Background:
This 139-nucleotide sequence from Streptomyces xinghaiensis belongs to the Rfam family "Group II catalytic intron D1-D4-4". The organism belongs to Streptomyces, within Bacteria. Gene Ontology term of the family: Group II intron splicing.
RNA sequence: CUGCCGGUGGAAGUCCGGUCCGGGUAGCUGCCAGGAGGCCCGGUAGCAGGCUGGCGGCGUCGGAGGGAAACGUCCGGCGUCGAAGCCCAGCGUCAAAGGCCCUGUAACAGGGGGAGCGACGAUACGGUCCGUAGCAUCA
Numbered sequence: 001c002u003g004c005c006g007g008u009g010g011a012a013g014u015c016c017g018g019u020c021c022g023g024g025u026a027g028c029u030g031c032c033a034g035g036a037g038g039c040c041c042g043g044u045a046g047c048a049g050g051c052u053g054g055c056g057g058c059g060u061c062g063g064a065g066g067g068a069a070a071c072g073u074c075c076g077g078c079g080u081c082g083a084a085g086c087c088c089a090g091c092g093u094c095a096a097a098g099g100c101c102c103u104g105u106a107a108c109a110g111g112g113g114g115a116g117c118g119a120c121g122a123u124a125c126g127g128u129c130c131g132u133a134g135c136a137u138c139a
Stems, first nucleotide, its partner, number of pairs: 020043005050091005055082006064073001066071001100112004116132003
Dot-bracket structure: ...................(((((..............)))))......(((((((((((...(.(....).)...))))))....)))))........((((.....))))...(((...........))).......
The family has 90 seed sequences and 840 matches in Rfam 15.1. Group II introns are found in rRNA, tRNA and mRNA of organelles in fungi, plants and protists, and also in mRNA in bacteria. A reference for the family is Bonen and Vogel (2001), "The ins and outs of group II introns", Trends Genet.